[Rfam]
RNA: RAGATH-24 RNA
RNA sequence: UUGACAGUCCAAAUACCACCUGCCUCCGUGAGAUACAUGGAGUGGGGCAUUCAGAAGAGAAUGCCUGCGACUAGUUCGCUUGAUGACGUGGCACAUAGGACAC
Numbered sequence: 001u002u003g004a005c006a007g008u009c010c011a012a013a014u015a016c017c018a019c020c021u022g023c024c025u026c027c028g029u030g031a032g033a034u035a036c037a038u039g040g041a042g043u044g045g046g047g048c049a050u051u052c053a054g055a056a057g058a059g060a061a062u063g064c065c066u067g068c069g070a071c072u073a074g075u076u077c078g079c080u081u082g083a084u085g086a087c088g089u090g091g092c093a094c095a096u097a098g099g100a101c102a103c
Base pairs, nucleotide, nucleotide: 007101008100009099010098016091017090018089019088024042025041026040027039028038029037030036046065047064048063049062050061051060052059067079068078069077070076